RNA sequence: UAGCGAGGACGACCUCGCCACCCGCGCGGUGCUCCAGCAGGGACGGCCCUG
Numbered sequence: 001u002a003g004c005g006a007g008g009a010c011g012a013c014c015u016c017g018c019c020a021c022c023c024g025c026g027c028g029g030u031g032c033u034c035c036a037g038c039a040g041g042g043a044c045g046g047c048c049c050u051g
Base pairs, nucleotide, nucleotide: 001020003018004017005016006015007014008013038051039050040049041048042047
RNA: Guanidine-II riboswitch aptamer (mini-ykkC)
Organism: Pseudomonas jinjuensis